[Rfam]
RNA sequence: GACUGGUCCAAGUGCAGUAGUGUUUGCAACUAAUUGAUUACAACCAGUUACAGAUUCCUUUAUUCCUUCUCCACUCCCACUACUUACUUUGAUAAGACUUUU
Numbered sequence: 001g002a003c004u005g006g007u008c009c010a011a012g013u014g015c016a017g018u019a020g021u022g023u024u025u026g027c028a029a030c031u032a033a034u035u036g037a038u039u040a041c042a043a044c045c046a047g048u049u050a051c052a053g054a055u056u057c058c059u060u061u062a063u064u065c066c067u068u069c070u071c072c073a074c075u076c077c078c079a080c081u082a083c084u085u086a087c088u089u090u091g092a093u094a095a096g097a098c099u100u101u102u
Stems, first nucleotide, its partner, number of pairs: 001098001003096002006093003010090002016081003020077001022076001032064003036060002
Rfam assigns this 102-nucleotide sequence from Theropithecus gelada to the family "Y RNA".
Rfam's curators write: Y RNAs are components of the Ro ribonucleoprotein particle (Ro RNP), in association with Ro60 and La proteins.
The family's RNA type in Rfam is non-coding RNA gene.
On this family, see Mosig et al., Theory Biosci 2007: "Evolution of the vertebrate Y RNA cluster".